[Rfam]
RNA sequence: CCCGCUCGCCAGGGGUCUCCCGCCGGUUUCCGCGGGAGUGAGACAUACCCUUCGAACCUGAUGCGGUUGAGACCGCCGUAGGGAGGUGGAUGCGCCUCGCU
Numbered sequence: 001c002c003c004g005c006u007c008g009c010c011a012g013g014g015g016u017c018u019c020c021c022g023c024c025g026g027u028u029u030c031c032g033c034g035g036g037a038g039u040g041a042g043a044c045a046u047a048c049c050c051u052u053c054g055a056a057c058c059u060g061a062u063g064c065g066g067u068u069g070a071g072a073c074c075g076c077c078g079u080a081g082g083g084a085g086g087u088g089g090a091u092g093c094g095c096c097u098c099g100c101u
Stems, first nucleotide, its partner, number of pairs: 006089005011051004016045001017038007057082004063076004